[Rfam]
RNA sequence: UGUGGCGGGGCUUCGGGCGGUAAGAGAAAAAGAACUCUUGGGAGAGAAACCCUCCAAACCAAUCCAAACCCUGUGUUCGUCACUCGGCGGAGUGAACUCUCUCAACUCGGAUGGCGUCGGUGAGGUUUGGGCGUGCAGGCUCAGCCCUGACAACCGCAGACAUGCGUCGGCCCCCGCCGGGACUGGCAUCCCAGUGCGAGGGCCUGACCACCAGAGGAAGAAGAUCGGUCUUCCCC
Numbered sequence: 001u002g003u004g005g006c007g008g009g010g011c012u013u014c015g016g017g018c019g020g021u022a023a024g025a026g027a028a029a030a031a032g033a034a035c036u037c038u039u040g041g042g043a044g045a046g047a048a049a050c051c052c053u054c055c056a057a058a059c060c061a062a063u064c065c066a067a068a069c070c071c072u073g074u075g076u077u078c079g080u081c082a083c084u085c086g087g088c089g090g091a092g093u094g095a096a097c098u099c100u101c102u103c104a105a106c107u108c109g110g111a112u113g114g115c116g117u118c119g120g121u122g123a124g125g126u127u128u129g130g131g132c133g134u135g136c137a138g139g140c141u142c143a144g145c146c147c148u149g150a151c152a153a154c155c156g157c158a159g160a161c162a163u164g165c166g167u168c169g170g171c172c173c174c175c176g177c178c179g180g181g182a183c184u185g186g187c188a189u190c191c192c193a194g195u196g197c198g199a200g201g202g203c204c205u206g207a208c209c210a211c212c213a214g215a216g217g218a219a220g221a222a223g224a225u226c227g228g229u230c231u232u233c234c235c236c
Stems, first nucleotide, its partner, number of pairs: 007212002010209001016071001080095006110145001112143003169204005175198003179192004216234005
Overview:
A member of the RNA family "Streptomyces sRNA 4677" from Streptomyces ipomoeae, 236 nucleotides long. NCBI's taxonomy places the organism under Bacteria, Bacillati, Actinomycetes, Kitasatosporales, Streptomyces ipomoeae. A reference for the family is Hindra et al. (2014), "Complex intra-operonic dynamics mediated by a small RNA in Streptomyces coelicolor", PLoS One. About the family: Located in the intergenic region between anti-sigma factor SCO4677 gene and a putative regulatory protein gene SCO4676. scr4677 expression requires the SCO4677 activity and scr4677 sRNA itself seem to affect the levels of the SCO4676-associated transcripts. It is annotated as a small RNA. The match comes from Rfam's covariance-model search (108 bits). Pairs were carried over by alignment from the consensus structure.